[Rfam]
RNA sequence: CAAUGGUCGUUGCGAUAGUAAUCCUGCUCAGUACGAGAGGAACCGCAGGUUCGGACAUUUGGUUCACGCGCUCGGCCGAUCGGCCGGUGGCGCGAAGCUACCAUCCGCGGGAUUAUGCCUGAACGCCUCUAAGGCAGCAUCCCAUCUAGACGAUGCAACGAUACUUUUGCACUCUGUUUGUCACGAGGCCGAAAUACGUCCUCUUAUGGUAGGUAAGCUGUGUUCAAGGUCCAUGAAUGUGGUCCUCACGGCUUACAGCCUAGCCAGAUUCACAUGAGGUGGGAAACCAGCUACCUUCACAAUGAUUUUUCGCGUUGUGUUGGUCGUCCUCAAGUGUGCAAUCAUUUACGGUGAUGUCAGAGUGUAGAAUCGUCUGUAGACGACUUACGUACCGGCCGGGGUGUCGUACUCGGUAGAGCAGUUCCCAUGCUGCGAUCCGUUGAGACUCAGCCCUUGACUGGAGGAUUCGU
Numbered sequence: 001c002a003a004u005g006g007u008c009g010u011u012g013c014g015a016u017a018g019u020a021a022u023c024c025u026g027c028u029c030a031g032u033a034c035g036a037g038a039g040g041a042a043c044c045g046c047a048g049g050u051u052c053g054g055a056c057a058u059u060u061g062g063u064u065c066a067c068g069c070g071c072u073c074g075g076c077c078g079a080u081c082g083g084c085c086g087g088u089g090g091c092g093c094g095a096a097g098c099u100a101c102c103a104u105c106c107g108c109g110g111g112a113u114u115a116u117g118c119c120u121g122a123a124c125g126c127c128u129c130u131a132a133g134g135c136a137g138c139a140u141c142c143c144a145u146c147u148a149g150a151c152g153a154u155g156c157a158a159c160g161a162u163a164c165u166u167u168u169g170c171a172c173u174c175u176g177u178u179u180g181u182c183a184c185g186a187g188g189c190c191g192a193a194a195u196a197c198g199u200c201c202u203c204u205u206a207u208g209g210u211a212g213g214u215a216a217g218c219u220g221u222g223u224u225c226a227a228g229g230u231c232c233a234u235g236a237a238u239g240u241g242g243u244c245c246u247c248a249c250g251g252c253u254u255a256c257a258g259c260c261u262a263g264c265c266a267g268a269u270u271c272a273c274a275u276g277a278g279g280u281g282g283g284a285a286a287c288c289a290g291c292u293a294c295c296u297u298c299a300c301a302a303u304g305a306u307u308u309u310u311c312g313c314g315u316u317g318u319g320u321u322g323g324u325c326g327u328c329c330u331c332a333a334g335u336g337u338g339c340a341a342u343c344a345u346u347u348a349c350g351g352u353g354a355u356g357u358c359a360g361a362g363u364g365u366a367g368a369a370u371c372g373u374c375u376g377u378a379g380a381c382g383a384c385u386u387a388c389g390u391a392c393c394g395g396c397c398g399g400g401g402u403g404u405c406g407u408a409c410u411c412g413g414u415a416g417a418g419c420a421g422u423u424c425c426c427a428u429g430c431u432g433c434g435a436u437c438c439g440u441u442g443a444g445a446c447u448c449a450g451c452c453c454u455u456g457a458c459u460g461g462a463g464g465a466u467u468c469g470u
Stems, first nucleotide, its partner, number of pairs: 006162008016148003021051001023049005052107004060100003067094005072087006109143003116136005171363006367468005372388002376384001393460003397456002399453003403446002411439003415436001418433005